The record is a 209-nucleotide RNA sequence from Myotis myotis, which matches "Small nucleolar RNA U3" in Rfam. Rfam links the family to the GO terms RNA processing and nucleolus. Small nucleolar RNAs (snoRNAs) are involved in the processing and modification of rRNA in the nucleolus. There are two main classes of snoRNAs: the box C/D class, and the box H/ACA class. U3 snoRNA is a member of the box C/D class. Indeed, the box C/D element is a subset of the six short sequence elements found in all U3 snoRNAs, namely boxes A, A', B, C, C', and D. The U3 snoRNA secondary structure is characterised by a small 5' domain (with boxes A and A'), and a larger 3' domain (with boxes B, C, C', and D), the two domains being linked by a single-stranded hinge.

RNA sequence: AAGACUAUACUUUCAGGGAUCAUUUCUACAGUUCGUUACUAAAGAAGUUUCUCUGAACAUGUGUAACACCUGAAACCAUGAGGAGGAGGUGCAGUGUUCUCUCCUGAGUGUGAAGCUGGCUUUUGGUGUUGCUUUUGCAAUGCUAUUGCCCACUGAUGACCGUUCUUCUCUUCCUUUGGGAGAGCAUGGGGUUGGAGAGUUAAACAAAU
Dot-bracket structure: .((..(..(((...((((.....))))..)))..)...))........(.(..(......).).)............................((.(.((((((...(((.......((.(..(((((((((....)))))))))..).)).........)))...((((((((...))))))).).......))))))..).))....
The family has 87 seed sequences and 19,072 matches in Rfam 15.1. The family's consensus secondary structure is taken from published work.